Notes: Shown here is an 85-nucleotide RNA sequence from Gallus gallus, a member of the family "Small nucleolar RNA SNORD100". Its Rfam clan is "SNORD100 clan". The source organism's lineage runs through Eukaryota, Metazoa, Deuterostomia, Saurischia and Gallus. Rfam's curators put it in the seed alignment. The family's consensus secondary structure was predicted with RNAalifold. Rfam links the family to the GO terms RNA processing and nucleolus. The family's RNA type in Rfam is C/D-box small nucleolar RNA.
[Rfam]
RNA sequence: UGCAUCUGUGAUGAAAAUUUGGCUCCCUCUACUGAAACAAAUGAGGAGAACUGCCUUAAUCGUUACCCAAAUCUUCUGAGAUGUU
Numbered sequence: 001u002g003c004a005u006c007u008g009u010g011a012u013g014a015a016a017a018u019u020u021g022g023c024u025c026c027c028u029c030u031a032c033u034g035a036a037a038c039a040a041a042u043g044a045g046g047a048g049a050a051c052u053g054c055c056u057u058a059a060u061c062g063u064u065a066c067c068c069a070a071a072u073c074u075u076c077u078g079a080g081a082u083g084u085u
Base pairs, nucleotide, nucleotide: 002084003083004082005081006080